[Rfam]
This 133-nucleotide sequence belongs to the Rfam family "Caulobacter sRNA CrfA".
RNA sequence: CUGGUGUGAACAGGGCCUAAGGGCUCUUUCACACGGGGCGGAUCAGUGAUGAUCCGCCCCGUGAACACCCGCUGAGCAGGAAAAUGACAGGUCCGUCGCUGCACACUGUGCAGCGAUGGACCUGUCAGAGCGC
Numbered sequence: 001c002u003g004g005u006g007u008g009a010a011c012a013g014g015g016c017c018u019a020a021g022g023g024c025u026c027u028u029u030c031a032c033a034c035g036g037g038g039c040g041g042a043u044c045a046g047u048g049a050u051g052a053u054c055c056g057c058c059c060c061g062u063g064a065a066c067a068c069c070c071g072c073u074g075a076g077c078a079g080g081a082a083a084a085u086g087a088c089a090g091g092u093c094c095g096u097c098g099c100u101g102c103a104c105a106c107u108g109u110g111c112a113g114c115g116a117u118g119g120a121c122c123u124g125u126c127a128g129a130g131c132g133c
Base pairs, nucleotide, nucleotide: 001036004034005033006032007031008030009029012027013026014025015024017023037058038057039056040055041054042053043052044051063133066132068130069079071077072076086126087125088124089123090122091121092120093119094118095117096116097115098114099113100112101111102110103109104108

A reference for the family is Landt et al. (2010), "CrfA, a small noncoding RNA regulator of adaptation to carbon starvation in Caulobacter crescentus", J Bacteriol. Rfam classes the family as a small RNA.